Shown here is a 599-nucleotide part of an RNA from Thermanaerovibrio acidaminovorans, a member of the family "Bacterial small subunit ribosomal RNA". The organism belongs to Thermanaerovibrio acidaminovorans, within Bacteria. The family is grouped with related families in Rfam's "SSU clan".
[Rfam]
RNA sequence: UGACGGGGGCCCGCACAAGCGGUGGAGCACGUGGUUUAAUUCGAUGCAAACCGAAGCACCUCACCUGGGUUUGACAUGUAGGUGGUAGGGAGAUGAAAGUUGAACGACCCUGGGGUAACUCAGGGAGCCUACACAGGUGCUGCAUGGCUGUCGUCAGCUCGUGUCGUGAGAUGUUGGGUUAAGUCCCGCAACGAGCGCAACCCCUAUUGCCAGUUGCUAACGGGAGAGCCGAGGACUCUGGCGAGACUGCCGUCGACAAGGCGGAGGAAGGUGGGGACGACGUCAAGUCAUCAUGGCCUUUAUGCCCAGGGCGACACACGUGCUACAAUGGCCGGCACAGAGGGGAGCGAGACCGCGAGGUGGAGCGAAUCCCAGAAAGCCGGUCCCAGUUCGGAUUGCAGUCUGCAACUCGACUGCAUGAAGCCGGAAUCGCUAGUAAUCGCGGAUCAGCCAAGCCGCGGUGAAUACGUUCCCGGGCCUUGUACACACCGCCCGUCACACCACCCGAGUUGGGUGUACCCCGAAGUCACCGGCCUAACCUGCGAGGGGGGGAGGUGCCUAAGGGGAUGCUUGGUAAGGGGGGUGAAGUCGUAACAAGG
Numbered sequence: 001u002g003a004c005g006g007g008g009g010c011c012c013g014c015a016c017a018a019g020c021g022g023u024g025g026a027g028c029a030c031g032u033g034g035u036u037u038a039a040u041u042c043g044a045u046g047c048a049a050a051c052c053g054a055a056g057c058a059c060c061u062c063a064c065c066u067g068g069g070u071u072u073g074a075c076a077u078g079u080a081g082g083u084g085g086u087a088g089g090g091a092g093a094u095g096a097a098a099g100u101u102g103a104a105c106g107a108c109c110c111u112g113g114g115g116u117a118a119c120u121c122a123g124g125g126a127g128c129c130u131a132c133a134c135a136g137g138u139g140c141u142g143c144a145u146g147g148c149u150g151u152c153g154u155c156a157g158c159u160c161g162u163g164u165c166g167u168g169a170g171a172u173g174u175u176g177g178g179u180u181a182a183g184u185c186c187c188g189c190a191a192c193g194a195g196c197g198c199a200a201c202c203c204c205u206a207u208u209g210c211c212a213g214u215u216g217c218u219a220a221c222g223g224g225a226g227a228g229c230c231g232a233g234g235a236c237u238c239u240g241g242c243g244a245g246a247c248u249g250c251c252g253u254c255g256a257c258a259a260g261g262c263g264g265a266g267g268a269a270g271g272u273g274g275g276g277a278c279g280a281c282g283u284c285a286a287g288u289c290a291u292c293a294u295g296g297c298c299u300u301u302a303u304g305c306c307c308a309g310g311g312c313g314a315c316a317c318a319c320g321u322g323c324u325a326c327a328a329u330g331g332c333c334g335g336c337a338c339a340g341a342g343g344g345g346a347g348c349g350a351g352a353c354c355g356c357g358a359g360g361u362g363g364a365g366c367g368a369a370u371c372c373c374a375g376a377a378a379g380c381c382g383g384u385c386c387c388a389g390u391u392c393g394g395a396u397u398g399c400a401g402u403c404u405g406c407a408a409c410u411c412g413a414c415u416g417c418a419u420g421a422a423g424c425c426g427g428a429a430u431c432g433c434u435a436g437u438a439a440u441c442g443c444g445g446a447u448c449a450g451c452c453a454a455g456c457c458g459c460g461g462u463g464a465a466u467a468c469g470u471u472c473c474c475g476g477g478c479c480u481u482g483u484a485c486a487c488a489c490c491g492c493c494c495g496u497c498a499c500a501c502c503a504c505c506c507g508a509g510u511u512g513g514g515u516g517u518a519c520c521c522c523g524a525a526g527u528c529a530c531c532g533g534c535c536u537a538a539c540c541u542g543c544g545a546g547g548g549g550g551g552g553a554g555g556u557g558c559c560u561a562a563g564g565g566g567a568u569g570c571u572u573g574g575u576a577a578g579g580g581g582g583g584u585g586a587a588g589u590c591g592u593a594a595c596a597a598g599g
Stems, first nucleotide, its partner, number of pairs: 001486002003483003007480007015470002019433005024326001026324008034315002040055004064310007077133007088105001092101003108125007136299002139297004145293002147288003150284001152282002157196006163172003175188004202276004207244007217233002221231003247267002250264005330385007342373003347366002352361003392423001397418007439462007489598001491595001494591002499585004504580003509575009519565003526559001528557004534552003539548002